The family of this 112-nucleotide RNA from Etheostoma spectabile is "U5 spliceosomal RNA". The source organism's lineage runs through Eukaryota, Bilateria, Neopterygii, Osteoglossocephalai and Oligocephalus. The literature on the family includes a 1990 paper in Nucleic Acids Res by Thomas et al., "The spliceosomal snRNAs of Caenorhabditis elegans". The base pairs follow the family's consensus structure, which is taken from published work. From the family's description: U5 RNA is a component of both types of known spliceosome. Rfam classes the family as a spliceosomal small nuclear RNA. The match comes from Rfam's covariance-model search (58 bits).
RNA sequence: UCACUCUGGUUUCUCUUCACAAUAACACAAGUCUUUCGCCUUUUACUAAAGACUUCCUUGAAGGGGAACCCCCGAUGAAACUCUUUUGGUGGGCUUUGCUGUUUGCCGAGCC
Numbered sequence: 001u002c003a004c005u006c007u008g009g010u011u012u013c014u015c016u017u018c019a020c021a022a023u024a025a026c027a028c029a030a031g032u033c034u035u036u037c038g039c040c041u042u043u044u045a046c047u048a049a050a051g052a053c054u055u056c057c058u059u060g061a062a063g064g065g066g067a068a069c070c071c072c073c074g075a076u077g078a079a080a081c082u083c084u085u086u087u088g089g090u091g092g093g094c095u096u097u098g099c100u101g102u103u104u105g106c107c108g109a110g111c112c
Stems, first nucleotide, its partner, number of pairs: 005078002009069011029055008091112001093111004098106001